[Rfam]
RNA sequence: UCUCGCUGCCCUCCUUGGGCGUUUCCUCCCUAGACUUACGGCCGCUCCUCGGAGCGGCCUUUUUUUUUGUCCGGA
Numbered sequence: 001u002c003u004c005g006c007u008g009c010c011c012u013c014c015u016u017g018g019g020c021g022u023u024u025c026c027u028c029c030c031u032a033g034a035c036u037u038a039c040g041g042c043c044g045c046u047c048c049u050c051g052g053a054g055c056g057g058c059c060u061u062u063u064u065u066u067u068u069g070u071c072c073g074g075a
Base pairs, nucleotide, nucleotide: 008020009019010018011017040059041058042057043056044055045054046053047052
Source information:
Shown here is a 75-nucleotide sequence from Acuticoccus sediminis, a member of the family "Makes More Granules Regulator RNA (mmgR)". The pairing is the family consensus, mapped onto this sequence. Gene Ontology terms of the family: protein binding, response to nitrogen compound and DNA-templated transcription, termination. The family has 87 seed sequences and 1,791 matches in Rfam 15.1. Taxonomically the source falls in Acuticoccus (Bacteria, Pseudomonadati, Alphaproteobacteria, Hyphomicrobiales).